[Rfam]
RNA sequence: UUUAGUAGAGAUAAAAACACAGUUCGGUUGGUAGUCCGAACCUAUUUGAUUUUUAAAUAGCAGUAACCUGCCCUCCUGGGGUUGUCCAUUCUCUAUGAUUAAAUU
Number, nucleotide and partner (000 for none) at each position: 001u000002u000003u000004a000005g096006u095007a094008g093009a092010g091011a090012u000013a000014a000015a000016a000017a000018c000019a000020c000021a000022g041023u040024u039025c038026g037027g036028u000029u000030g000031g000032u000033a000034g000035u000036c027037c026038g025039a024040a023041c022042c060043u059044a058045u057046u056047u055048g054049a053050u000051u000052u000053u049054u048055a047056a046057a045058u044059a043060g042061c000062a000063g000064u000065a000066a000067c000068c000069u000070g082071c000072c081073c080074u079075c000076c000077u000078g000079g074080g073081g072082u070083u000084g000085u000086c000087c000088a000089u000090u011091c010092u009093c008094u007095a006096u005097g000098a000099u000100u000101a000102a000103a000104u000105u000